Annotation: DUF3800-XI RNA: a 48-nucleotide sequence. Actinobacteria, Firmicutes, Proteobacteria, Spirochaetes (1 example). The family's RNA type in Rfam is small RNA.

[Rfam]
RNA sequence: GGGGCUGGUCGAAAGACCCGGGUCCAUCUGCUGGCGGGUAAGACACCC
Numbered sequence: 001g002g003g004g005c006u007g008g009u010c011g012a013a014a015g016a017c018c019c020g021g022g023u024c025c026a027u028c029u030g031c032u033g034g035c036g037g038g039u040a041a042g043a044c045a046c047c048c
Stems, first nucleotide, its partner, number of pairs: 002025005007018004